[Rfam]
RNA sequence: UUGCUUACUGAUGCAGUAUCUUCAAGAUUCACAUGCCAUUUAACUCCAUAUAUAUAGUUUAUGGGUAAUGAGAAUCUUGAUGAUGCUGCAUCGGAAAUCAA
Numbered sequence: 001u002u003g004c005u006u007a008c009u010g011a012u013g014c015a016g017u018a019u020c021u022u023c024a025a026g027a028u029u030c031a032c033a034u035g036c037c038a039u040u041u042a043a044c045u046c047c048a049u050a051u052a053u054a055u056a057g058u059u060u061a062u063g064g065g066u067a068a069u070g071a072g073a074a075u076c077u078u079g080a081u082g083a084u085g086c087u088g089c090a091u092c093g094g095a096a097a098u099c100a101a
Base pairs, nucleotide, nucleotide: 010092011091012090013089014088015087016086017085018084019083020082022080023079024078025077026076027075028074029073030072032070033069

The record is a 101-nucleotide RNA sequence from Artemisia annua, which matches "mir-172 microRNA precursor family" in Rfam. From the family's description: mir-172 has been experimentally verified in Arabidopsis thaliana. The family's consensus secondary structure was predicted with PFOLD. Taxonomically the source falls in Artemisia (Eukaryota, Euphyllophyta, Magnoliopsida, Gunneridae). A search with the family's covariance model found it, with a score of 74 bits.